[Rfam]
RNA sequence: UAUCCUUUCAUGAUGAAAUAUUGCGGAUGUAAAUCUUUUGUCACUGUCCGAAUGCGCAAACCAUGUAGAGAUUUCCGUUGCCUUCCUUCUGAUCUGGAA
Numbered sequence: 001u002a003u004c005c006u007u008u009c010a011u012g013a014u015g016a017a018a019u020a021u022u023g024c025g026g027a028u029g030u031a032a033a034u035c036u037u038u039u040g041u042c043a044c045u046g047u048c049c050g051a052a053u054g055c056g057c058a059a060a061c062c063a064u065g066u067a068g069a070g071a072u073u074u075c076c077g078u079u080g081c082c083u084u085c086c087u088u089c090u091g092a093u094c095u096g097g098a099a
Stems, first nucleotide, its partner, number of pairs: 003099001005097001024077004

A member of the RNA family "Small nucleolar RNA Z13/snr52" from Trichoderma citrinoviride, 99 nucleotides long. The family has 42 seed sequences and 1,203 matches in Rfam 15.1. It scores 90 bits against the family's covariance model. The family's consensus secondary structure was predicted with PFOLD. Rfam classes the family as a C/D-box small nucleolar RNA. Taxonomically the source falls in Trichoderma (Eukaryota, Ascomycota, leotiomyceta, Sordariomycetes). Gene Ontology terms of the family: RNA processing and nucleolus.